[Rfam]
RNA: mir-8517 microRNA precursor family
RNA sequence: AUAUAGGACGUUUUAGCUAUUGAAGUGUCCCUCUCUAACUCAGAACAAAUUGUUAUUUGAACUAAAGGGACAAAACAGUUCAAUAGCUAAAACGUCCUAUAAC
Numbered sequence: 001a002u003a004u005a006g007g008a009c010g011u012u013u014u015a016g017c018u019a020u021u022g023a024a025g026u027g028u029c030c031c032u033c034u035c036u037a038a039c040u041c042a043g044a045a046c047a048a049a050u051u052g053u054u055a056u057u058u059g060a061a062c063u064a065a066a067g068g069g070a071c072a073a074a075a076c077a078g079u080u081c082a083a084u085a086g087c088u089a090a091a092a093c094g095u096c097c098u099a100u101a102a103c
Base pairs, nucleotide, nucleotide: 002101003100004099005098006097011092012091013090014089015088016087017086018085019084020083021082022081023080024079026077027076028075029059044054045053046052047051